[Rfam]
RNA sequence: AACAUCAUUUUAAUCGCUCAUCUGGACCUUAUGAAACUCAUUUUAAGAGGGGGGAUCUAGUAGUCUAUUUUGUUAUAUGCUACAAUUCUCUGGUAUUUUUAGGUCUAGACAGGCGUAGAAAAUAUUUUUGAGGAUCGUUGCUGGGCACCCGGUGUAGACGUUGUGAAUGAUACAUUGGGAAUCAGCUGUAUCCACAUUG
Numbered sequence: 001a002a003c004a005u006c007a008u009u010u011u012a013a014u015c016g017c018u019c020a021u022c023u024g025g026a027c028c029u030u031a032u033g034a035a036a037c038u039c040a041u042u043u044u045a046a047g048a049g050g051g052g053g054g055a056u057c058u059a060g061u062a063g064u065c066u067a068u069u070u071u072g073u074u075a076u077a078u079g080c081u082a083c084a085a086u087u088c089u090c091u092g093g094u095a096u097u098u099u100u101a102g103g104u105c106u107a108g109a110c111a112g113g114c115g116u117a118g119a120a121a122a123u124a125u126u127u128u129u130g131a132g133g134a135u136c137g138u139u140g141c142u143g144g145g146c147a148c149c150c151g152g153u154g155u156a157g158a159c160g161u162u163g164u165g166a167a168u169g170a171u172a173c174a175u176u177g178g179g180a181a182u183c184a185g186c187u188g189u190a191u192c193c194a195c196a197u198u199g
Stems, first nucleotide, its partner, number of pairs: 015115003022108008037054003041050003057093004062081003133192002136188002148179002152175005159169004